About this RNA:
A member of the RNA family "U8 small nucleolar RNA" from Sclerurus mexicanus, 135 nucleotides long. The match comes from Rfam's covariance-model search (46 bits). The source organism's lineage runs through Eukaryota, Vertebrata, Archelosauria, Furnariidae and Sclerurus. Rfam links the family to the GO terms RNA processing and nucleolus. The family's RNA type in Rfam is C/D-box small nucleolar RNA. Rfam 15.1 lists 1,597 matches to the family in 457 species.
RNA sequence: UCGUCAGUGCGGUACAUCCUGACCUGCCCCGCUAUUGCGGGCAGCGCGUGAUGAGCGCGGCGUGAUGACGUAGUGAUUACGUCACGCGGGGGCGGGGCCACCGCAACAAGGCCCCGCCGUCCCAGAGUCUCUGAC
Numbered sequence: 001u002c003g004u005c006a007g008u009g010c011g012g013u014a015c016a017u018c019c020u021g022a023c024c025u026g027c028c029c030c031g032c033u034a035u036u037g038c039g040g041g042c043a044g045c046g047c048g049u050g051a052u053g054a055g056c057g058c059g060g061c062g063u064g065a066u067g068a069c070g071u072a073g074u075g076a077u078u079a080c081g082u083c084a085c086g087c088g089g090g091g092g093c094g095g096g097g098c099c100a101c102c103g104c105a106a107c108a109a110g111g112c113c114c115c116g117c118c119g120u121c122c123c124a125g126a127g128u129c130u131c132u133g134a135c
Stems, first nucleotide, its partner, number of pairs: 024044003028041005067085001070082002074079001088121002091118008
Dot-bracket structure: .......................(((.(((((....))))))))......................(..((..(....).))..)..((.((((((((............)))))))).))..............